Small nucleolar RNA SNORD35: an 86-nucleotide sequence from Prolemur simus. The literature on the family includes a 1996 paper in J Mol Biol by Nicoloso et al., "Intron-encoded, antisense small nucleolar RNAs: the characterization of nine novel species points to their direct role as guides for the 2'-O-ribose methylation of rRNAs".
[Rfam]
RNA sequence: GGCAGAUGAUGUCUGUUUUCAUGAUGGUCUUCAGAUGCCCACCAUGGGCACUGCUGAGUGCCACCUGACAAAACUCAUGCUGGAAA
Dot-bracket structure: ((((.........................................................................)))).....
Numbered sequence: 001g002g003c004a005g006a007u008g009a010u011g012u013c014u015g016u017u018u019u020c021a022u023g024a025u026g027g028u029c030u031u032c033a034g035a036u037g038c039c040c041a042c043c044a045u046g047g048g049c050a051c052u053g054c055u056g057a058g059u060g061c062c063a064c065c066u067g068a069c070a071a072a073a074c075u076c077a078u079g080c081u082g083g084a085a086a
Stems, first nucleotide, its partner, number of pairs: 001081004

Source information
The family is grouped with related families in Rfam's "SNORD35 clan". Pairs were carried over by alignment from the consensus structure, which was predicted with PFOLD. About the family: U35 is a C/D box snoRNA located in intron 6 of ribosomal protein L13A and intron 3 of ribosomal protein S11 in humans and at homologous positions in mouse and chicken ribosomal protein genes. U35 guides the methylation of 2'-O-ribose sites in 28S rRNA.